[Rfam]
RNA: nhaA-I RNA
RNA sequence: GGGUGCCAUGCCGCGAUCAGCGGUGUGUCAGGUUUCAGCGAUGGUCGGGCCGCCACG
Numbered sequence: 001g002g003g004u005g006c007c008a009u010g011c012c013g014c015g016a017u018c019a020g021c022g023g024u025g026u027g028u029c030a031g032g033u034u035u036c037a038g039c040g041a042u043g044g045u046c047g048g049g050c051c052g053c054c055a056c057g
Stems, first nucleotide, its partner, number of pairs: 005029001007027006039057002042055004